[Rfam]
RNA sequence: CAGGUACCGGUUCACGCUCGAUCAACAGGCAUGACCCUGUGGGCGACCCGGCGACC
Numbered sequence: 001c002a003g004g005u006a007c008c009g010g011u012u013c014a015c016g017c018u019c020g021a022u023c024a025a026c027a028g029g030c031a032u033g034a035c036c037c038u039g040u041g042g043g044c045g046a047c048c049c050g051g052c053g054a055c056c
Stems, first nucleotide, its partner, number of pairs: 003056003007051004015045006023039001

A member of the RNA family "L31-Actinobacteria ribosomal protein leader" from Mycobacterium sp. shizuoka-1, 56 nucleotides long. Its Rfam clan is "Ribosomal Protein L31 Leader clan". It scores 45 bits against the family's covariance model. It is annotated as a cis-regulatory leader.